[Rfam]
RNA sequence: GUACCUUUGCAACACUCUGGCUCUUACCGUUCCUUCCCGCCUUCGGGCCUGGAUUGAACAAUUACUACGUGGUAUAGGCUUAUUUUGCGCAAAGGAGAACAACGACCUACUACUCACCGCGGUGUUCUCGGGUGAAGCUUGCUUCGUCUUGUGGAUACAGUGGUCCAUUUCAUCGGUCUACAU
Numbered sequence: 001g002u003a004c005c006u007u008u009g010c011a012a013c014a015c016u017c018u019g020g021c022u023c024u025u026a027c028c029g030u031u032c033c034u035u036c037c038c039g040c041c042u043u044c045g046g047g048c049c050u051g052g053a054u055u056g057a058a059c060a061a062u063u064a065c066u067a068c069g070u071g072g073u074a075u076a077g078g079c080u081u082a083u084u085u086u087g088c089g090c091a092a093a094g095g096a097g098a099a100c101a102a103c104g105a106c107c108u109a110c111u112a113c114u115c116a117c118c119g120c121g122g123u124g125u126u127c128u129c130g131g132g133u134g135a136a137g138c139u140u141g142c143u144u145c146g147u148c149u150u151g152u153g154g155a156u157a158c159a160g161u162g163g164u165c166c167a168u169u170u171c172a173u174c175g176g177u178c179u180a181c182a183u
Stems, first nucleotide, its partner, number of pairs: 007092003019080004025074004030057002034053003104178004117163004122158003126155003
A member of the RNA family "Small nucleolar RNA snR80" from Aspergillus mulundensis, 183 nucleotides long. Its Rfam clan is "SNORA28 clan". It is annotated as an H/ACA-box small nucleolar RNA. On this family, see Schattner et al., Nucleic Acids Res 2004: "Genome-wide searching for pseudouridylation guide snoRNAs: analysis of the Saccharomyces cerevisiae genome".